[Rfam]
This 109-nucleotide RNA from Myotis lucifugus belongs to the Rfam family "Small nucleolar RNA U6-53/MBII-28". The family has 25 seed sequences and 780 matches in Rfam 15.1. By type it is a C/D-box small nucleolar RNA. A reference for the family is Huttenhofer et al. (2001), "RNomics: an experimental approach that identifies 201 candidates for novel, small, non-messenger RNAs in mouse", EMBO J.
RNA sequence: CCUCGAUGAUGAAUUGCCAUGCUAAUACUGAGCCAUCAGGUGGGGCAGUGUUGCCCUACUUGGGUGCCAGUGAGUUGAACAAAACUUCUCAUGUGGAGACCUGAGGGGC
Dot-bracket structure: ((((....................................(((((........)))))..............................................)))).